[Rfam]
RNA sequence: GCGUGGGUCGGCCUGCUGGACGCGCACCAGUGGGCUGGGGGAAUGCCGCCACCUUGCUCCCCGCGGGUGGCGGCCCGGUCCGGGAGGAAUCCAUGCCUCCCGGACCGCC
Numbered sequence: 001g002c003g004u005g006g007g008u009c010g011g012c013c014u015g016c017u018g019g020a021c022g023c024g025c026a027c028c029a030g031u032g033g034g035c036u037g038g039g040g041g042a043a044u045g046c047c048g049c050c051a052c053c054u055u056g057c058u059c060c061c062c063g064c065g066g067g068u069g070g071c072g073g074c075c076c077g078g079u080c081c082g083g084g085a086g087g088a089a090u091c092c093a094u095g096c097c098u099c100c101c102g103g104a105c106c107g108c109c
Stems, first nucleotide, its partner, number of pairs: 001108002006076002009037010038044001046073009077106011
RNA: Streptomyces RNA 4115
Organism: Streptomyces chumphonensis